[Rfam]
Notes:
The record is an 84-nucleotide sequence from Sphenodon punctatus, which matches "mir-15 microRNA precursor family" in Rfam. Gene Ontology terms of the family: RISC complex and miRNA-mediated post-transcriptional gene silencing. It scores 77 bits against the family's covariance model. The source organism's lineage runs through Eukaryota, Metazoa, Sauria, Sphenodontidae and Sphenodon. Rfam describes the family as follows. This family represents the related mir-15a and mir-15b sequences. In humans miR-15a and miR-16 are clustered within 0.5 kb at 13q14. This region has been shown to be deleted in more than half of B cell chronic lymphocytic leukaemias (CLL). Both miR-15a and miR-16 are deleted or down-regulated in more than two thirds of CLL cases. Rfam 15.1 lists 2,045 matches to the family in 649 species. On this family, see Lagos-Quintana et al., Science 2001: "Identification of novel genes coding for small expressed RNAs". The base pairs follow the family's consensus structure, which was predicted with RNAalifold.

RNA sequence: CCUUAAAGUACUCUAGCAGCACAUCAUGAUUUGUAUGUGAUAGCAAAGAUGCAAAUCAUUAUUUGCUGCUUAAGAAAUUUAAGG
Number, nucleotide and partner (000 for none) at each position: 001c084002c083003u082004u081005a080006a079007a000008g000009u000010a000011c000012u000013c000014u000015a070016g069017c068018a067019g066020c065021a064022c000023a062024u061025c000026a059027u058028g057029a056030u055031u054032u053033g052034u051035a050036u049037g000038u000039g000040a000041u000042a000043g000044c000045a000046a000047a000048g000049a036050u035051g034052c033053a032054a031055a030056u029057c028058a027059u026060u000061a024062u023063u000064u021065g020066c019067u018068g017069c016070u015071u000072a000073a000074g000075a000076a000077a000078u000079u006080u005081a004082a003083g002084g001